mir-9223 microRNA precursor family: a 76-nucleotide sequence from Myotis davidii. Lineage of the source: Eukaryota > Opisthokonta > Bilateria > Laurasiatheria > Myotis.
RNA sequence: GGCAGUUCUUGGGUGAUGCACCCUGGAAUUGGGCUUCCUCCUUUCUGGUUCCGUGGUGCAUCACCUGAGAACUGCC
Numbered sequence: 001g002g003c004a005g006u007u008c009u010u011g012g013g014u015g016a017u018g019c020a021c022c023c024u025g026g027a028a029u030u031g032g033g034c035u036u037c038c039u040c041c042u043u044u045c046u047g048g049u050u051c052c053g054u055g056g057u058g059c060a061u062c063a064c065c066u067g068a069g070a071a072c073u074g075c076c
Stems, first nucleotide, its partner, number of pairs: 002075002005072013019058004025052009